[Rfam]
RNA sequence: UGAUGCUAGGGUCAAAAGCCUGAAACCAUGAUGUGCUUGCACAGGAGUGGUUUCAGGCUUUUGACCCAUCCCGAUAUGAUCAUAAAAGUGUAGUGUUAGCUUCCCGAUAUGCGAAUAGCGGGAAGAAUUGUAGGAGUGCAAAGCACGGAACAAUCCGUGUAAUCA
Dot-bracket structure: ((((..(..((((..((((((((((((((..((((....))))...))))))))))))))..))))...((((.(((...(((....(.(.(((....))).).)...)))...))).))))..(.(((((....((((...))))...))))).)..)..))))
Numbered sequence: 001u002g003a004u005g006c007u008a009g010g011g012u013c014a015a016a017a018g019c020c021u022g023a024a025a026c027c028a029u030g031a032u033g034u035g036c037u038u039g040c041a042c043a044g045g046a047g048u049g050g051u052u053u054c055a056g057g058c059u060u061u062u063g064a065c066c067c068a069u070c071c072c073g074a075u076a077u078g079a080u081c082a083u084a085a086a087a088g089u090g091u092a093g094u095g096u097u098a099g100c101u102u103c104c105c106g107a108u109a110u111g112c113g114a115a116u117a118g119c120g121g122g123a124a125g126a127a128u129u130g131u132a133g134g135a136g137u138g139c140a141a142a143g144c145a146c147g148g149a150a151c152a153a154u155c156c157g158u159g160u161a162a163u164c165a
Stems, first nucleotide, its partner, number of pairs: 001165004007159001010066004016060014032043004070122004075117003081111003088105001090103001092101003125156001127154005136146004
This 165-nucleotide RNA from Roseburia sp. CAG:50 belongs to the Rfam family "Clostridiales-1 RNA". NCBI's taxonomy places the organism under Bacteria, Bacillati, Bacillota, Lachnospirales, Roseburia. It scores 113 bits against the family's covariance model.